[Rfam]
RNA sequence: CGCACGCGGGUCCGCGGCGGCGCUCAGGCGCUGUCGCUCCGGUGCCGGGUCUAUCCCGGCGUUUACCCGCGGAGGCUCAACCGGAGAAAGAAAAGGA
Numbered sequence: 001c002g003c004a005c006g007c008g009g010g011u012c013c014g015c016g017g018c019g020g021c022g023c024u025c026a027g028g029c030g031c032u033g034u035c036g037c038u039c040c041g042g043u044g045c046c047g048g049g050u051c052u053a054u055c056c057c058g059g060c061g062u063u064u065a066c067c068c069g070c071g072g073a074g075g076c077u078c079a080a081c082c083g084g085a086g087a088a089a090g091a092a093a094a095g096g097a
Stems, first nucleotide, its partner, number of pairs: 001074001003072001005071006014037002025033002044060006
RNA: rpsB sRNA
Organism: Magnetospirillum gryphiswaldense